[Rfam]
Nucleotides: 080
Stems, first nucleotide, its partner, number of pairs: 022039003026035003058079006065072002
Number, partner (000 for none) and nucleotide at each position: 001000a002000a003000u004000u005000c006000u007000a008000a009000u010000g011000a012000a013000u014000c015000a016000c017000u018000c019000u020000c021000a022039g023038g024037g025000c026035c027034u028033u029000g030000a031000a032000u033028a034027a035026g036000a037024c038023c039022c040000a041000g042000u043000g044000a045000a046000c047000a048000a049000u050000u051000u052000u053000u054000g055000g056000a057000g058079a059078c060077c061076c062075u063074a064000a065072u066071c067000u068000g069000a070000g071066g072065a073000a074063u075062a076061g077060g078059g079058u080000g